[Rfam]
RNA sequence: ACCCUCCAGUUCCCUUUCCCAUUGGAUUUGAACCCUGGUCUCGGUGGUCGUAAAAGGAGGAAUAGUAGUACUGAAGCUGUGCUCAUAGUGUCUGCUAUAUAGCAUCUGGACUAGUUUAAAACAAGG
Numbered sequence: 001a002c003c004c005u006c007c008a009g010u011u012c013c014c015u016u017u018c019c020c021a022u023u024g025g026a027u028u029u030g031a032a033c034c035c036u037g038g039u040c041u042c043g044g045u046g047g048u049c050g051u052a053a054a055a056g057g058a059g060g061a062a063u064a065g066u067a068g069u070a071c072u073g074a075a076g077c078u079g080u081g082c083u084c085a086u087a088g089u090g091u092c093u094g095c096u097a098u099a100u101a102g103c104a105u106c107u108g109g110a111c112u113a114g115u116u117u118a119a120a121a122c123a124a125g126g
Stems, first nucleotide, its partner, number of pairs: 003060005019047005025040004077114003082109002089104003